RNA sequence: GGGUGCAACGUGGGAUCCACACGCUGCAGGUUCAUGCGAAGGUCGGGCCGCCUCG
Numbered sequence: 001g002g003g004u005g006c007a008a009c010g011u012g013g014g015a016u017c018c019a020c021a022c023g024c025u026g027c028a029g030g031u032u033c034a035u036g037c038g039a040a041g042g043u044c045g046g047g048c049c050g051c052c053u054c055g
Base pairs, nucleotide, nucleotide: 005027006026007025009023010022011021012020037055038054039053041052042051043050
Rfam assigns this 55-nucleotide RNA from Rhodoferax sp. AJA081-3 to the family "nhaA-I RNA". Taxonomically the source falls in Rhodoferax (Bacteria, Pseudomonadati, Pseudomonadota, Burkholderiales). The family's RNA type in Rfam is riboswitch.